[Rfam]
RNA: Enterococcus sRNA EF3314_EF3315
Organism: Enterococcus faecalis
RNA sequence: GAAAUCAUUCUUAUCAGAGUAUACAAAUACGAUGAUAAACAGUUGAAGCGAAUCUUGAUUUGCUUUUCCUAAACCUGAUUCUUUUAGAAUCAGGUUUUUGUUUGUCUAAAAGGCGGCAUUCGUUCAAAAACGGCUGUCGCC
Numbered sequence: 001g002a003a004a005u006c007a008u009u010c011u012u013a014u015c016a017g018a019g020u021a022u023a024c025a026a027a028u029a030c031g032a033u034g035a036u037a038a039a040c041a042g043u044u045g046a047a048g049c050g051a052a053u054c055u056u057g058a059u060u061u062g063c064u065u066u067u068c069c070u071a072a073a074c075c076u077g078a079u080u081c082u083u084u085u086a087g088a089a090u091c092a093g094g095u096u097u098u099u100g101u102u103u104g105u106c107u108a109a110a111a112g113g114c115g116g117c118a119u120u121c122g123u124u125c126a127a128a129a130a131c132g133g134c135u136g137u138c139g140c141c
Stems, first nucleotide, its partner, number of pairs: 011038006019030004041070002045066009071097012112141007120133005